RNA: Glycine riboswitch aptamer
Organism: Thermoanaerobacteraceae bacterium SP2
RNA sequence: AUGAAGGAUAUGGAAGAGACCCUUAAAAAGGGCGCCGAAGGGGUAAGUGGCAAAGCCAUGAAACUCUCAGGCAAAAGGACCGUAUCCAGACA
Numbered sequence: 001a002u003g004a005a006g007g008a009u010a011u012g013g014a015a016g017a018g019a020c021c022c023u024u025a026a027a028a029a030g031g032g033c034g035c036c037g038a039a040g041g042g043g044u045a046a047g048u049g050g051c052a053a054a055g056c057c058a059u060g061a062a063a064c065u066c067u068c069a070g071g072c073a074a075a076a077g078g079a080c081c082g083u084a085u086c087c088a089g090a091c092a
Base pairs, nucleotide, nucleotide: 006087007086008085009084010083011082012081013080020032021031022030023029034072035071036070037068038067041066042065043064047059048058